[Rfam]
RNA sequence: GUAGGAUAUGGCGACAUUUACCCCACUACUCUGCUGGGUAAAGUGAUAGGGUCCGUCUGUUGUGUGUGCGGUGUACUUUUCAUUGCCCUGCCCAUUCCCAUCAUCGUAAACAAC
Numbered sequence: 001g002u003a004g005g006a007u008a009u010g011g012c013g014a015c016a017u018u019u020a021c022c023c024c025a026c027u028a029c030u031c032u033g034c035u036g037g038g039u040a041a042a043g044u045g046a047u048a049g050g051g052u053c054c055g056u057c058u059g060u061u062g063u064g065u066g067u068g069c070g071g072u073g074u075a076c077u078u079u080u081c082a083u084u085g086c087c088c089u090g091c092c093c094a095u096u097c098c099c100a101u102c103a104u105c106g107u108a109a110a111c112a113a114c
Stems, first nucleotide, its partner, number of pairs: 001114002004111001007108005013102002020095001037077004049063001051061001

A member of the RNA family "Potassium channel RNA editing signal" from Patiria miniata, 114 nucleotides long. This family represents a group of sequences related to the human potassium channel Kv1.1 hairpin element which directs the efficient modification of an adenosine to inosine by an adenosine deaminase acting on RNA (ADAR). The base pairs follow the family's consensus structure, which is taken from published work. A search with the family's covariance model found it, with a score of 71 bits. A reference for the family is Bhalla et al. (2004), "Control of human potassium channel inactivation by editing of a small mRNA hairpin", Nat Struct Mol Biol.